Rfam assigns this 90-nucleotide sequence from Aerococcus christensenii to the family "TPP riboswitch aptamer (THI element)". About the family: Vitamin B(1) in its active form thiamin pyrophosphate (TPP) is an essential coenzyme that is synthesised by coupling of pyrimidine and thiazole moieties in bacteria. The previously detected thiamin-regulatory element, thi box was extended, resulting in a new, highly conserved RNA secondary structure, the THI element, which is widely distributed in eubacteria and also occurs in some archaea. Analysis of operon structures identified a large number of new candidate thiamin-regulated genes, mostly transporters, in various prokaryotic organisms. The THI element is a riboswitch that directly binds to TPP to regulate gene expression through a variety of mechanisms in archaea, bacteria and eukaryotes. through a variety of mechanisms in archaea, bacteria and eukaryotes.
RNA sequence: AAGAGAUUGCAGGGGUACUGGAAACAGUUGAGAUAACACCCUUUGAACCUGUUUGUUAAGACAAGCGUAGGGAGCAAUACAAGGAAAGAA
Number, nucleotide and partner (000 for none) at each position: 001a000002a000003g000004a000005g000006a078007u077008u076009g075010c074011a042012g041013g040014g039015g000016u036017a028018c027019u026020g025021g000022a000023a000024a000025c020026a019027g018028u017029u000030g000031a000032g000033a000034u000035a000036a016037c000038a000039c014040c013041c012042u011043u000044u000045g000046a000047a000048c071049c070050u069051g068052u065053u064054u063055g062056u000057u000058a000059a000060g000061a000062c055063a054064a053065g052066c000067g000068u051069a050070g049071g048072g000073a000074g010075c009076a008077a007078u006079a000080c000081a000082a000083g000084g000085a000086a000087a000088g000089a000090a000